Rfam assigns this 135-nucleotide RNA from Caenorhabditis angaria to the family "Caenorhabditis sRNA ceN93". The literature on the family includes a 2007 paper in BMC Mol Biol by Jia et al., "Systematic identification of non-coding RNA 2,2,7-trimethylguanosine cap structures in Caenorhabditis elegans". The family has 4 seed sequences and 10 matches in Rfam 15.1.
[Rfam]
Nucleotides: 135
Stems, first nucleotide, its partner, number of pairs: 001060008011050002014046001017043003021039001023037001027035002072128004077123002084118002086111001089108003093105004
Number, partner (000 for none) and nucleotide at each position: 001060u002059u003058u004057c005056c006055a007054u008053u009000u010000a011050g012049u013000a014046g015000u016000c017043c018042c019041g020000g021039g022000c023037g024000a025000a026000c027035a028034a029000a030000a031000a032000u033000g034028u035027u036000u037023c038000c039021u040000u041019c042018g043017g044000u045000u046014u047000g048000g049012a050011c051000a052000u053008a054007a055006u056005g057004g058003a059002g060001a061000a062000a063000u064000a065000a066000a067000a068000g069000u070000a071000a072128u073127u074126g075125c076000g077123c078122a079000u080000u081000u082000u083000u084118g085117c086111u087000u088000c089108a090107g091106a092000a093105c094104g095103g096102a097000a098000u099000u100000u101000u102096u103095c104094c105093g106091u107090c108089u109000u110000u111086g112000u113000c114000u115000u116000a117085g118084c119000c120000c121000u122078u123077g124000u125075g126074u127073a128072a129000u130000a131000c132000a133000u134000u135000u